The family of this 92-nucleotide RNA from Bacillus salacetis is "c-di-GMP-I-GGC riboswitch aptamer".
[Rfam]
Nucleotides: 092
Base pairs, nucleotide, nucleotide: 001092003089004088011036012035016031017030018029019028020027021026034078039085040084041083042082044081045080046079047076048075049074
Number, partner (000 for none) and nucleotide at each position: 001092g002000a003089c004088g005000a006000u007000a008000a009000a010000g011036g012035c013000a014000a015000a016031c017030u018029u019028a020027u021026c022000g023000a024000a025000a026021g027020g028019u029018a030017a031016g032000g033000a034078c035012g036011c037000a038000a039085a040084g041083c042082u043000a044081u045080g046079g047076g048075u049074c050000u051000a052000a053000a054000a055000u056000c057000c058000u059000g060000u061000u062000c063000a064000a065000c066000a067000g068000g069000g070000u071000c072000a073000u074049g075048a076047u077000u078034g079046c080045c081044a082042g083041g084040u085039u086000g087000c088004c089003g090000a091000a092001u
A reference for the family is Smith et al. (2012), "Structural and biochemical characterization of linear dinucleotide analogues bound to the c-di-GMP-I aptamer", Biochemistry.